[Rfam]
RNA sequence: CCUGUUGCUGGGUUAAGGACCAGCCUGUAGCAGG
Numbered sequence: 001c002c003u004g005u006u007g008c009u010g011g012g013u014u015a016a017g018g019a020c021c022a023g024c025c026u027g028u029a030g031c032a033g034g
Stems, first nucleotide, its partner, number of pairs: 001034008010025002
Dot-bracket structure: ((((((((.((............)).))))))))
The record is a 34-nucleotide RNA sequence from Podargus strigoides, which matches "L25-Gammaproteobacteria ribosomal protein leader" in Rfam. A search with the family's covariance model found it, with a score of 34 bits. A reference for the family is Eckert and Weinberg (2020), "Discovery of 20 novel ribosomal leader candidates in bacteria and archaea", BMC Microbiol.